[Rfam]
RNA sequence: GAAUUGUCAGUAUAAAUCUUUGAUCUGAUACUCUAUUAGUUAGUAUGUGAAUUUCUUUUUAACAAUUUUCUUAUUCAUGCGAGAGCUAUCAAUAAGUAUUAGAACAAAGUUUUAUACUGACAAUUCAA
Numbered sequence: 001g002a003a004u005u006g007u008c009a010g011u012a013u014a015a016a017u018c019u020u021u022g023a024u025c026u027g028a029u030a031c032u033c034u035a036u037u038a039g040u041u042a043g044u045a046u047g048u049g050a051a052u053u054u055c056u057u058u059u060u061a062a063c064a065a066u067u068u069u070c071u072u073a074u075u076c077a078u079g080c081g082a083g084a085g086c087u088a089u090c091a092a093u094a095a096g097u098a099u100u101a102g103a104a105c106a107a108a109g110u111u112u113u114a115u116a117c118u119g120a121c122a123a124u125u126c127a128a
Stems, first nucleotide, its partner, number of pairs: 001126016018109005024103008033085002036082002043076001045074003049070002
RNA: MIR4245 microRNA precursor family
Organism: Arabidopsis thaliana